This 62-nucleotide sequence from Chlorocebus sabaeus belongs to the Rfam family "U7 small nuclear RNA". Taxonomically the source falls in Chlorocebus (Eukaryota, Bilateria, Deuterostomia, Primates). The match comes from Rfam's covariance-model search (74 bits). A reference for the family is Spycher et al. (1994), "3' end processing of mouse histone pre-mRNA: evidence for additional base-pairing between U7 snRNA and pre-mRNA", Nucleic Acids Res. The family's consensus secondary structure was predicted with PFOLD.
RNA sequence: GAGUGUUACAGCUCUUUUAGAAUUUUUCUAGCAGGCUUUCUGGUCUUUGCCGGAAAGCCUAU
Number, nucleotide and partner (000 for none) at each position: 001g000002a000003g000004u000005g000006u000007u000008a000009c000010a000011g000012c000013u000014c000015u000016u000017u000018u000019a000020g000021a000022a000023u000024u000025u000026u000027u000028c000029u000030a000031g000032c000033a000034g059035g058036c057037u056038u055039u054040c053041u052042g051043g050044u049045c000046u000047u000048u000049g044050c043051c042052g041053g040054a039055a038056a037057g036058c035059c034060u000061a000062u000